Shown here is a 101-nucleotide RNA from Filifactor alocis, a member of the family "SAM riboswitch aptamer (S box leader)".
[Rfam]
RNA sequence: ACCUUAUCAAGAGUGGCGGAGGGACUGGCCCGUUGAUGCCCGGCAACCAGCAGAAUGCAUGGUGCUAAUUCCUGCAAAAAAGUAUUUUUGGCAGAUGAGGU
Number, nucleotide and partner (000 for none) at each position: 001a101002c100003c099004u098005u097006a096007u095008c094009a000010a000011g000012a000013g041014u000015g040016g039017c038018g000019g000020a000021g031022g030023g029024a000025c074026u000027g072028g071029c023030c022031c021032g000033u000034u000035g000036a000037u000038g017039c016040c015041c013042g066043g065044c064045a063046a000047c062048c061049a000050g058051c057052a056053g000054a000055a000056u052057g051058c050059a000060u000061g048062g047063u045064g044065c043066u042067a000068a000069u000070u093071c028072c027073u000074g025075c090076a089077a088078a087079a086080a085081a000082g000083u000084a000085u080086u079087u078088u077089u076090g075091g000092c000093a070094g008095a007096u006097g005098a004099g003100g002101u001

The organism belongs to Filifactor alocis, within Bacteria. Its family is annotated with regulation of gene expression in the Gene Ontology. The SAM riboswitch is found upstream of a number of genes which code for proteins involved in methionine or cysteine biosynthesis in Gram-positive bacteria. Its Rfam clan is "SAM clan".